The record is a 97-nucleotide RNA sequence from Aliterella atlantica, which matches "TPP riboswitch aptamer (THI element)" in Rfam. Pairs were carried over by alignment from the consensus structure, which is taken from published work.

[Rfam]
RNA sequence: GAAAUCAGCUAGGGGUGCCUGCAAUUUCCAGGCUGAGACAGUCCCUUAGAACCUGAGACUGGGUAAUACCAGCGGAGGGAAGCUGUAAAUAGAGGUA
Numbered sequence: 001g002a003a004a005u006c007a008g009c010u011a012g013g014g015g016u017g018c019c020u021g022c023a024a025u026u027u028c029c030a031g032g033c034u035g036a037g038a039c040a041g042u043c044c045c046u047u048a049g050a051a052c053c054u055g056a057g058a059c060u061g062g063g064u065a066a067u068a069c070c071a072g073c074g075g076a077g078g079g080a081a082g083c084u085g086u087a088a089a090u091a092g093a094g095g096u097a
Stems, first nucleotide, its partner, number of pairs: 006085005011046004016040001017033005052078003059072004
Its family is annotated with thiamine pyrophosphate binding in the Gene Ontology. The organism belongs to Aliterella atlantica, within Bacteria. It scores 70 bits against the family's covariance model.